[Rfam]
Shown here is a 77-nucleotide RNA sequence from Cotesia congregata, a member of the family "mir-980 microRNA precursor family".
Rfam 15.1 lists 121 matches to the family in 99 species.
NCBI's taxonomy places the organism under Eukaryota, Hymenoptera, Ichneumonoidea, Microgastrinae, Cotesia.
RNA sequence: AUUACAUUACGGCUCAUCAUAAGGCAUCUCGCUUGAUUUUAAAAUGCUAGCUGCCUCUUGAAGGGCAAUGUUGUGAU
Numbered sequence: 001a002u003u004a005c006a007u008u009a010c011g012g013c014u015c016a017u018c019a020u021a022a023g024g025c026a027u028c029u030c031g032c033u034u035g036a037u038u039u040u041a042a043a044a045u046g047c048u049a050g051c052u053g054c055c056u057c058u059u060g061a062a063g064g065g066c067a068a069u070g071u072u073g074u075g076a077u
Base pairs, nucleotide, nucleotide: 004074005073006072008070009069012066013065014064015063017061018060019059023055024054028050029049031047032046